[Rfam]
RNA sequence: GUUUGUAUGAUGACUUAUGUGUCGGAUACCCCUUCACUCUUUCAAUGAGUGAAACAUUGAAGUCUGACAAAC
Numbered sequence: 001g002u003u004u005g006u007a008u009g010a011u012g013a014c015u016u017a018u019g020u021g022u023c024g025g026a027u028a029c030c031c032c033u034u035c036a037c038u039c040u041u042u043c044a045a046u047g048a049g050u051g052a053a054a055c056a057u058u059g060a061a062g063u064c065u066g067a068c069a070a071a072c
Stems, first nucleotide, its partner, number of pairs: 001072005
Small nucleolar RNA SNORD101: a 72-nucleotide RNA sequence from Dasypus novemcinctus. The base pairs follow the family's consensus structure, which was predicted with PFOLD. The literature on the family includes a 2003 paper in Nucleic Acids Res by Vitali et al., "Identification of 13 novel human modification guide RNAs". Gene Ontology terms of the family: nucleolus and RNA processing. The source organism's lineage runs through Eukaryota, Opisthokonta, Deuterostomia, Teleostomi and Dasypus. It is annotated as a C/D-box small nucleolar RNA.